[Rfam]
RNA: Bacterial RNase P class A
Organism: Prevotella sp. oral taxon 299
RNA sequence: GCAGAGUUUUGUUUCUGUCGUUUGCCUUUAAAAGAGGCAAAAGGAAAGUCCGGGCAGCGUAGAGCGUUUCGCUUUUGAAAGUAAAAGCUACUAGUAAUAGUAGGAUAUGGUAGAAGAAAAUAACCGCCAUCGCAAGAUGGUAAGGGUGAGAAGGUAGUGUAAGAGACUACCAGUUAAUGGGUGAUCGUUAAGCUGUACCAUCCGAAAGCUGCAAGUUCGCGUAUACCAUCGUUUGAGAGUUGCUCGCUCGAAUUAUUUCGAUGGAGGGUAGAAUGCUUGAGUUGUAAGGUGACUUGCAAUCUAGAUAAAUGACAGAUGCCUUUAUUUUUCGAGAGAAUAUAAAGGAACAGAACCCGGCUUAUAGAGACUCUGUUUUU
Numbered sequence: 001g002c003a004g005a006g007u008u009u010u011g012u013u014u015c016u017g018u019c020g021u022u023u024g025c026c027u028u029u030a031a032a033a034g035a036g037g038c039a040a041a042a043g044g045a046a047a048g049u050c051c052g053g054g055c056a057g058c059g060u061a062g063a064g065c066g067u068u069u070c071g072c073u074u075u076u077g078a079a080a081g082u083a084a085a086a087g088c089u090a091c092u093a094g095u096a097a098u099a100g101u102a103g104g105a106u107a108u109g110g111u112a113g114a115a116g117a118a119a120a121u122a123a124c125c126g127c128c129a130u131c132g133c134a135a136g137a138u139g140g141u142a143a144g145g146g147u148g149a150g151a152a153g154g155u156a157g158u159g160u161a162a163g164a165g166a167c168u169a170c171c172a173g174u175u176a177a178u179g180g181g182u183g184a185u186c187g188u189u190a191a192g193c194u195g196u197a198c199c200a201u202c203c204g205a206a207a208g209c210u211g212c213a214a215g216u217u218c219g220c221g222u223a224u225a226c227c228a229u230c231g232u233u234u235g236a237g238a239g240u241u242g243c244u245c246g247c248u249c250g251a252a253u254u255a256u257u258u259c260g261a262u263g264g265a266g267g268g269u270a271g272a273a274u275g276c277u278u279g280a281g282u283u284g285u286a287a288g289g290u291g292a293c294u295u296g297c298a299a300u301c302u303a304g305a306u307a308a309a310u311g312a313c314a315g316a317u318g319c320c321u322u323u324a325u326u327u328u329u330c331g332a333g334a335g336a337a338u339a340u341a342a343a344g345g346a347a348c349a350g351a352a353c354c355c356g357g358c359u360u361a362u363a364g365a366g367a368c369u370c371u372g373u374u375u376u377u
Stems, first nucleotide, its partner, number of pairs: 001373010011362001014316006021041009046360003050357005055211004062245004067207005072087005090101004103202002108200005124145002126141006153171006173193001174191007215274004226264005237249004281300008